[Rfam]
RNA sequence: CCCCUUGCAACCUGGCUCGCGAUCUUUAUAUUAGAAGGGUCAGCUUGCUGACUAUGGCGAUAAACUGUCUUACGUAAUAGACGUAGCGGACCCGGGGGCGGUACCCGGCGCCUCCACCAAAUCCCUCUCCCUUUACAGGGAAUUGGGGGCUUUCAUGGGGGCGAAUUAGGCUCGACGUGCGUUAAAAGGUCUGACUUUUGCCCGGAAAGAUACCACCGUGACGGAUCAAAACUUGAUAAAUGCCAAUGAUAAUGAAUCUAUGGCUCUUGCUGCGUAAAACACAGUAAGUGGGGUUCGAAGGGCACCUCGCAACAGAAGCCCUUCACU
Numbered sequence: 001c002c003c004c005u006u007g008c009a010a011c012c013u014g015g016c017u018c019g020c021g022a023u024c025u026u027u028a029u030a031u032u033a034g035a036a037g038g039g040u041c042a043g044c045u046u047g048c049u050g051a052c053u054a055u056g057g058c059g060a061u062a063a064a065c066u067g068u069c070u071u072a073c074g075u076a077a078u079a080g081a082c083g084u085a086g087c088g089g090a091c092c093c094g095g096g097g098g099c100g101g102u103a104c105c106c107g108g109c110g111c112c113u114c115c116a117c118c119a120a121a122u123c124c125c126u127c128u129c130c131c132u133u134u135a136c137a138g139g140g141a142a143u144u145g146g147g148g149g150c151u152u153u154c155a156u157g158g159g160g161g162c163g164a165a166u167u168a169g170g171c172u173c174g175a176c177g178u179g180c181g182u183u184a185a186a187a188g189g190u191c192u193g194a195c196u197u198u199u200g201c202c203c204g205g206a207a208a209g210a211u212a213c214c215a216c217c218g219u220g221a222c223g224g225a226u227c228a229a230a231a232c233u234u235g236a237u238a239a240a241u242g243c244c245a246a247u248g249a250u251a252a253u254g255a256a257u258c259u260a261u262g263g264c265u266c267u268u269g270c271u272g273c274g275u276a277a278a279a280c281a282c283a284g285u286a287a288g289u290g291g292g293g294u295u296c297g298a299a300g301g302g303c304a305c306c307u308c309g310c311a312a313c314a315g316a317a318g319c320c321c322u323u324c325a326c327u
Base pairs, nucleotide, nucleotide: 039052040051041050042049043048056202057201058200059199060198067195068194069193072190073189082181083180084179086178087177088176092108093107094106095105096104109163110162111161112160113159114158115157203218204217205216209227210226213224214223291307292306293305294304297324298323299322300321301320302319

Rfam assigns this 327-nucleotide RNA sequence from Govanella unica to the family "Alphaproteobacteria transfer-messenger RNA". It is annotated as a non-coding RNA gene. It scores 240 bits against the family's covariance model.